[Rfam]
RNA sequence: GGAUGCUCUGAAGACCUGCUCGCUAGGCUAUGCACGGAGGACGCUCGUUCCUCACGGGCCUCGGCCCGCCUAGGGGAAAGUCCCCGGACCGCAGGCAGAGAGUGCCGGGCGCUGCCGCGCCCCCGCCUACCCCCACCGUCACUAUAACACCGCCGAGACGCCCCCGGGCCGAGCGGGUGAUCGCGGGGCGGGCUCUCGUCACGGCCACAGACACGCAGGUAGUGCGCAGGCGCACCAACAGAACGGGGCUCACUCUCAGGCCAUC
Numbered sequence: 001g002g003a004u005g006c007u008c009u010g011a012a013g014a015c016c017u018g019c020u021c022g023c024u025a026g027g028c029u030a031u032g033c034a035c036g037g038a039g040g041a042c043g044c045u046c047g048u049u050c051c052u053c054a055c056g057g058g059c060c061u062c063g064g065c066c067c068g069c070c071u072a073g074g075g076g077a078a079a080g081u082c083c084c085c086g087g088a089c090c091g092c093a094g095g096c097a098g099a100g101a102g103u104g105c106c107g108g109g110c111g112c113u114g115c116c117g118c119g120c121c122c123c124c125g126c127c128u129a130c131c132c133c134c135a136c137c138g139u140c141a142c143u144a145u146a147a148c149a150c151c152g153c154c155g156a157g158a159c160g161c162c163c164c165c166g167g168g169c170c171g172a173g174c175g176g177g178u179g180a181u182c183g184c185g186g187g188g189c190g191g192g193c194u195c196u197c198g199u200c201a202c203g204g205c206c207a208c209a210g211a212c213a214c215g216c217a218g219g220u221a222g223u224g225c226g227c228a229g230g231c232g233c234a235c236c237a238a239c240a241g242a243a244c245g246g247g248g249c250u251c252a253c254u255c256u257c258a259g260g261c262c263a264u265c
Stems, first nucleotide, its partner, number of pairs: 002265004007260005014220006023073006037053005079250002082248004094106004107122006124192001126190001130188004150176004160169003222235005
Record summary:
Shown here is a 265-nucleotide RNA from Amazona guildingii, a member of the family "RNase MRP". By type it is a ribozyme. Lineage of the source: Eukaryota > Teleostomi > Sarcopterygii > Psittacidae > Amazona. Rfam links the family to the GO terms ribonuclease MRP complex, rRNA processing and ribonuclease MRP activity.